[Rfam]
RNA sequence: CCGUGCCGGGGUGGGCAGGCCCUGCGGCCAACUAACCCUAAUGGCGGCCGCGCCCCUCACGCUCGCCCGCUGUUUUACUCGCUGACUUUCAGCGGGCAAAGGGAGCGGCCUAGGGGAAGAGGGUGGUGGGGGGGAAAAGAGUUCCUCAAAAAAAGCCAGCGAUGGGGAUCCGCACCCCGGCCCACCCUGGGGUCUCUGUCCCUUCUCCGCCACCGGGGAUGCUCCCGCCUUCGCCCCUCGUGGAGGCCGCGGUCGGCGGGCUCAGCGCCACUGCCGCCGCGAAGAGUUCGUCUCUGUCAGCCUCGGCGGAGCCGGGAGCAGAGGGCCGGCCCGCCCACCCUGGGCAGCCGGGGGACCCCAGCAGAGCAAACAGGGGCGGCGCUGCCGGGCGCUGAGCAGCCGCAGCUCCCUGAGACGUGGAGUGCGCGGCCGGCGCCGCCCCGACACCC
Number, nucleotide and partner (000 for none) at each position: 001c000002c000003g000004u000005g181006c180007c179008g178009g177010g176011g175012u174013g173014g000015g171016c000017a169018g000019g000020c167021c166022c165023u164024g000025c000026g000027g000028c000029c000030a000031a000032c000033u000034a000035a000036c000037c000038c000039u000040a000041a000042u000043g000044g000045c000046g000047g000048c000049c000050g000051c000052g106053c105054c000055c103056c102057u000058c000059a000060c000061g000062c000063u000064c000065g097066c096067c095068c094069g093070c092071u091072g090073u000074u000075u000076u000077a000078c000079u000080c000081g160082c159083u158084g157085a000086c155087u153088u152089u151090c072091a071092g070093c069094g068095g067096g066097c065098a000099a000100a000101g000102g056103g055104a000105g053106c052107g000108g000109c000110c000111u000112a000113g000114g000115g000116g000117a000118a000119g000120a000121g000122g000123g000124u000125g000126g000127u000128g000129g000130g000131g000132g000133g000134g000135a000136a000137a000138a000139g000140a000141g000142u000143u000144c000145c000146u000147c000148a000149a000150a000151a089152a088153a087154a000155g086156c000157c084158a083159g082160c081161g000162a000163u000164g023165g022166g021167g020168a000169u017170c000171c015172g000173c013174a012175c011176c010177c009178c008179g007180g006181c005182c000183c000184a000185c000186c000187c361188u360189g359190g358191g357192g356193u355194c000195u000196c000197u000198g000199u000200c000201c000202c000203u000204u000205c000206u000207c000208c000209g000210c000211c000212a000213c329214c328215g327216g000217g000218g000219a000220u320221g319222c318223u317224c316225c315226c314227g000228c000229c000230u310231u309232c308233g307234c306235c000236c000237c000238u000239c000240g000241u000242g000243g000244a000245g000246g000247c000248c281249g280250c279251g278252g277253u000254c276255g275256g274257c273258g000259g269260g268261c267262u000263c000264a000265g000266c000267g261268c260269c259270a000271c000272u000273g257274c256275c255276g254277c252278c251279g250280c249281g248282a000283a295284g294285a293286g292287u000288u000289c000290g000291u000292c286293u285294c284295u283296g000297u000298c000299a000300g000301c000302c000303u000304c000305g000306g234307c233308g232309g231310a230311g000312c000313c000314g226315g225316g224317a223318g222319c221320a220321g000322a000323g000324g000325g000326c000327c215328g214329g213330c000331c000332c000333g000334c000335c000336c000337a000338c000339c000340c000341u000342g000343g000344g000345c000346a000347g000348c000349c000350g000351g000352g000353g000354g000355a193356c192357c191358c190359c189360a188361g187362c000363a000364g000365a000366g000367c000368a000369a000370a000371c000372a000373g000374g441375g440376g439377c438378g437379g436380c435381g434382c433383u432384g000385c000386c000387g000388g000389g000390c000391g000392c000393u000394g000395a000396g000397c000398a000399g000400c429401c428402g427403c426404a000405g000406c000407u422408c000409c420410c419411u000412g000413a000414g000415a000416c000417g000418u000419g410420g409421a000422g407423u000424g000425c000426g403427c402428g401429g400430c000431c000432g383433g382434c381435g380436c379437c378438g377439c376440c375441c374442c000443g000444a000445c000446a000447c000448c000449c000
The family of this 449-nucleotide sequence from Oenanthe oenanthe is "Vertebrate telomerase RNA". A search with the family's covariance model found it, with a score of 148 bits. It is annotated as a non-coding RNA gene. Its family is annotated with telomere maintenance via telomerase, telomerase catalytic core complex and telomerase activity in the Gene Ontology. Taxonomically the source falls in Oenanthe (Eukaryota, Opisthokonta, Gnathostomata, Dinosauria).